[Rfam]
RNA sequence: CUGGGGGGACGAGGCGAUCGCUGACAUGAAAAUGUUGGAGGAAAGUCCGAACUCCAUAGGGCAGAAUGCCGGGUAACGCCCGGUGGGGGUAACCCCAAGGAAAGUGCCACAGAAAAGAUACCGCCUCUCGAACGGGAGGUAAGGGUGAAAAGGCGAGGUAAGAGCUCACCGGUUUUCGUGGUAACACGAGAGCCUGGAAAACCCCAUUCGGAGCAAGACCAAAUAGGGAAGCGCUUGAGGAUGGCCCGUCCGAUGCUUCCGGGUAGGUCGCUUGAGGCGACGGGUGACCGUCGUCCCAGAGGAAUGAUCGCCGCCCGUUCUUCGGGAACAGAAUUCGGCUUAUUGUCCCCCCGGACUC
Number, nucleotide and partner (000 for none) at each position: 001c354002u353003g352004g351005g350006g349007g348008g347009a346010c345011g343012a000013g312014g311015c310016g309017a308018u307019c306020g000021c038022u037023g036024a035025c034026a033027u032028g000029a000030a000031a000032a027033u026034g025035u024036u023037g022038g021039a000040g000041g000042a000043a341044a340045g339046u000047c338048c337049g336050a335051a334052c213053u212054c211055c210056a000057u000058a000059g247060g246061g245062c244063a000064g209065a208066a207067u206068g205069c083070c082071g081072g080073g079074u000075a000076a000077c000078g000079c073080c072081c071082g070083g069084u098085g096086g095087g094088g093089g000090u000091a000092a000093c088094c087095c086096c085097a000098a084099g204100g203101a000102a000103a000104g202105u201106g000107c197108c196109a000110c000111a000112g000113a000114a000115a000116a000117g000118a000119u000120a000121c144122c143123g140124c139125c138126u137127c136128u135129c134130g000131a000132a000133c000134g129135g128136g127137a126138g125139g124140u123141a000142a000143g122144g121145g000146u000147g000148a000149a000150a000151a000152g170153g169154c000155g167156a166157g165158g000159u000160a000161a000162g000163a000164g000165c157166u156167c155168a000169c153170c152171g000172g193173u192174u191175u190176u189177c188178g187179u186180g185181g000182u000183a000184a000185c180186a179187c178188g177189a176190g175191a174192g173193c172194c000195u000196g108197g107198a000199a000200a000201a105202c104203c100204c099205c068206a067207u066208u065209c064210g055211g054212a053213g052214c000215a000216a000217g269218a268219c267220c266221a000222a000223a000224u000225a000226g000227g260228g259229a258230a257231g256232c255233g000234c000235u000236u000237g000238a000239g251240g250241a249242u248243g000244g062245c061246c060247c059248g242249u241250c240251c239252g000253a000254u000255g232256c231257u230258u229259c228260c227261g000262g000263g000264u000265a000266g220267g219268u218269c217270g000271c000272u000273u000274g000275a000276g295277g294278c293279g292280a291281c290282g289283g288284g000285u000286g000287a000288c283289c282290g281291u280292c279293g278294u277295c276296c000297c000298a000299g000300a000301g000302g000303a000304a000305u000306g019307a018308u017309c016310g015311c014312c013313g000314c000315c000316c000317g000318u000319u000320c000321u000322u000323c000324g000325g000326g000327a000328a000329c000330a000331g000332a000333a000334u051335u050336c049337g048338g047339c045340u044341u043342a000343u011344u000345g010346u009347c008348c007349c006350c005351c004352c003353g002354g001355a000356c000357u000358c000

The family of this 358-nucleotide RNA from Desulfomonile tiedjei is "Bacterial RNase P class A". Rfam classes the family as a ribozyme. It scores 327 bits against the family's covariance model. Rfam's curators write: Ribonuclease P (RNase P) is a ubiquitous endoribonuclease, found in archaea, bacteria and eukarya as well as chloroplasts and mitochondria. Its best characterised activity is the generation of mature 5'-ends of tRNAs by cleaving the 5'-leader elements of precursor-tRNAs. Cellular RNase Ps are ribonucleoproteins.